[Rfam]
CopA-like RNA: an 85-nucleotide sequence from Erwinia billingiae. Pairs were carried over by alignment from the consensus structure, which was predicted with PFOLD. A search with the family's covariance model found it, with a score of 73 bits. Rfam classes the family as an antisense RNA. Gene Ontology term of the family: mRNA binding. About the family: In several groups of bacterial plasmids, antisense RNAs regulate copy number through inhibition of replication initiator protein synthesis. These RNAs are characterised by a long hairpin structure interrupted by several unpaired residues or bulged loops. In plasmid R1, the inhibitory complex between the antisense RNA (CopA) and its target mRNA (CopT) is characterised by a four-way junction structure and a side-by-side helical alignment. Taxonomically the source falls in Erwinia billingiae (Bacteria, Pseudomonadati, Pseudomonadota, Enterobacterales). On this family, see Gerhart et al., Nucleic Acids Res 1986: "Structural analysis of an RNA molecule involved in replication control of plasmid R1".

RNA sequence: AUAGAGCAACAAACUCUAUACAGUUUUAGUGGACCCCGGUAAUCUUCAAGUCGCCAAACAGAAGAGAUUAUCGGGGUUUUUGCUA
Number, nucleotide and partner (000 for none) at each position: 001a019002u018003a017004g016005a015006g000007c000008a000009a000010c000011a000012a000013a000014c000015u005016c004017u003018a002019u001020a000021c000022a000023g000024u000025u000026u000027u085028a084029g083030u082031g079032g078033a077034c076035c075036c074037c073038g072039g071040u070041a069042a068043u067044c066045u065046u064047c000048a000049a000050g000051u000052c000053g000054c000055c000056a000057a000058a000059c000060a000061g000062a000063a000064g046065a045066g044067a043068u042069u041070a040071u039072c038073g037074g036075g035076g034077u033078u032079u031080u000081u000082g030083c029084u028085a027